Overview
Lysine riboswitch aptamer: a 175-nucleotide RNA sequence from Clostridium botulinum. Rfam's curators put it in the seed alignment. The base pairs follow the family's consensus structure, which is taken from published work. The organism belongs to Clostridium botulinum C, within Bacteria.
RNA sequence: AACUAAGAUAGAGGUGCGAGAUUUAAGAGUAGUAUUAUGGAGUUAAGUGCUAAGAAGUAAUAAGAAAGGAAAUUUCGCCGAAGCUUAUAGAUAAUACUUUAAUGCUAUUUGCUGGGAUUACAUAAAAUAUAUGUAAGACUGUCACAAAUAAAGUUUGUGGAGAGCUAUUAUUUUA
Numbered sequence: 001a002a003c004u005a006a007g008a009u010a011g012a013g014g015u016g017c018g019a020g021a022u023u024u025a026a027g028a029g030u031a032g033u034a035u036u037a038u039g040g041a042g043u044u045a046a047g048u049g050c051u052a053a054g055a056a057g058u059a060a061u062a063a064g065a066a067a068g069g070a071a072a073u074u075u076c077g078c079c080g081a082a083g084c085u086u087a088u089a090g091a092u093a094a095u096a097c098u099u100u101a102a103u104g105c106u107a108u109u110u111g112c113u114g115g116g117a118u119u120a121c122a123u124a125a126a127a128u129a130u131a132u133g134u135a136a137g138a139c140u141g142u143c144a145c146a147a148a149u150a151a152a153g154u155u156u157g158u159g160g161a162g163a164g165c166u167a168u169u170a171u172u173u174u175a
Base pairs, nucleotide, nucleotide: 007169008168009167010166011165016078017077018076019075020074021073022072023071024070033062034061035060036059037058038057082113083112084111087108088107089106090105114140115139118136119135120134121133122132123131124130142160143159144158145157146156147155148154